[Rfam]
RNA sequence: CCCUUAUCUUUUAAAAGUUUCAAGUUGAUCCCUUAUCUUUAUUUUAGGUUUCAUGUUGGUCCCUUCCGUCAAUUUUUUUACUAUUACCGUUAAAUUUGAACACAUGUGUCAAACUAAUUUGGACACGUGGUACACUUGGACAGAUGACACAUGUCUAAAUUUAACGGUAACAGUAAAAAUUUUGACAGAAAGGACCAACUUGAAACCUAAAAUAAAGAUAAGGGACCAACUUGAAACUUUUAAAAGAUAAGGGA
Numbered sequence: 001c002c003c004u005u006a007u008c009u010u011u012u013a014a015a016a017g018u019u020u021c022a023a024g025u026u027g028a029u030c031c032c033u034u035a036u037c038u039u040u041a042u043u044u045u046a047g048g049u050u051u052c053a054u055g056u057u058g059g060u061c062c063c064u065u066c067c068g069u070c071a072a073u074u075u076u077u078u079u080a081c082u083a084u085u086a087c088c089g090u091u092a093a094a095u096u097u098g099a100a101c102a103c104a105u106g107u108g109u110c111a112a113a114c115u116a117a118u119u120u121g122g123a124c125a126c127g128u129g130g131u132a133c134a135c136u137u138g139g140a141c142a143g144a145u146g147a148c149a150c151a152u153g154u155c156u157a158a159a160u161u162u163a164a165c166g167g168u169a170a171c172a173g174u175a176a177a178a179a180u181u182u183u184g185a186c187a188g189a190a191a192g193g194a195c196c197a198a199c200u201u202g203a204a205a206c207c208u209a210a211a212a213u214a215a216a217g218a219u220a221a222g223g224g225a226c227c228a229a230c231u232u233g234a235a236a237c238u239u240u241u242a243a244a245a246g247a248u249a250a251g252g253g254a
Stems, first nucleotide, its partner, number of pairs: 002252007023231003027227001029225001031223013045209003
A member of the RNA family "MIR2655 microRNA precursor family" from Trifolium subterraneum, 254 nucleotides long.
The organism belongs to Trifolium, within Eukaryota.
It scores 144 bits against the family's covariance model.